[Rfam]
Small nucleolar RNA SNORD111: a 91-nucleotide RNA sequence from Phyllostomus discolor. Lineage of the source: Eukaryota > Opisthokonta > Deuterostomia > Chordata > Phyllostomus. The family's RNA type in Rfam is C/D-box small nucleolar RNA. The family's consensus secondary structure was predicted with RNAalifold. The literature on the family includes a 2002 paper in Mol Cell Biol by Galardi et al., "Purified box C/D snoRNPs are able to reproduce site-specific 2'-O-methylation of target RNA in vitro". Rfam links the family to the GO terms RNA processing and nucleolus.
RNA sequence: UGGCCUGAAAUGAUUAGGUUUUAAAGUUUGUGCCCUUUUCUGACAUUUUUUUCUGGAGAUAGUUUUUUGCCUUACUGACCUGAUUAGGCUG
Numbered sequence: 001u002g003g004c005c006u007g008a009a010a011u012g013a014u015u016a017g018g019u020u021u022u023a024a025a026g027u028u029u030g031u032g033c034c035c036u037u038u039u040c041u042g043a044c045a046u047u048u049u050u051u052u053c054u055g056g057a058g059a060u061a062g063u064u065u066u067u068u069g070c071c072u073u074a075c076u077g078a079c080c081u082g083a084u085u086a087g088g089c090u091g
Base pairs, nucleotide, nucleotide: 001091002090003089004088005087